[Rfam]
RNA: mir-26 microRNA precursor family
Organism: Eptatretus burgeri
Nucleotides: 070
Base pairs, nucleotide, nucleotide: 002069003068004067005066006065009062010061011060012059013058014057015056016055017054019052020051021050022049023048024047025046026045027044028043
Number, partner (000 for none) and nucleotide at each position: 001000u002069c003068c004067c005066g006065g007000u008000u009062c010061a011060a012059g013058u014057a015056a016055u017054c018000c019052a020051g021050g022049a023048u024047a025046g026045g027044c028043u029000g030000u031000g032000u033000g034000u035000g036000u037000u038000c039000a040000a041000c042000g043028g044027g045026c046025c047024u048023g049022u050021c051020c052019u053000c054017g055016a056015u057014u058013g059012c060011u061010u062009g063000c064000u065006u066005u067004g068003g069002g070000u